Shown here is a 131-nucleotide RNA from Nomascus leucogenys, a member of the family "Small nucleolar RNA SNORA33". The family has 28 seed sequences and 1,176 matches in Rfam 15.1. The base pairs follow the family's consensus structure, which was predicted with PFOLD. NCBI's taxonomy places the organism under Eukaryota, Deuterostomia, Chordata, Eutheria, Nomascus. Its family is annotated with nucleolus and RNA processing in the Gene Ontology. Rfam classes the family as an H/ACA-box small nucleolar RNA. ACA33 is a member of the H/ACA class of snoRNA that guide the sites of modification of uridines to pseudouridines.
RNA sequence: AAGCUAGCCAAUGAAUCUGUUUACCUAAACAUGUUUCUGCAGAAAUUUUUAUUUUAAAAAUCUGGUAAUAGUAAAGCCAUUUAUGAGCCUUAAGUAUAUUGAAGUUAAGGUCCCUGAAAAUGGCUAUAACA
Number, nucleotide and partner (000 for none) at each position: 001a000002a000003g066004c065005u064006a063007g062008c000009c000010a000011a000012u000013g000014a000015a000016u043017c042018u041019g040020u039021u000022u000023a000024c000025c000026u000027a000028a000029a000030c000031a000032u000033g000034u000035u000036u000037c000038u000039g020040c019041a018042g017043a016044a000045a000046u000047u000048u000049u000050u000051a000052u000053u000054u000055u000056a000057a000058a000059a000060a000061u000062c007063u006064g005065g004066u003067a000068a000069u000070a000071g000072u000073a000074a000075a000076g124077c123078c122079a121080u000081u000082u000083a000084u000085g000086a000087g111088c110089c109090u108091u107092a106093a105094g000095u000096a000097u000098a000099u000100u000101g000102a000103a000104g000105u093106u092107a091108a090109g089110g088111u087112c000113c000114c000115u000116g000117a000118a000119a000120a000121u079122g078123g077124c076125u000126a000127u000128a000129a000130c000131a000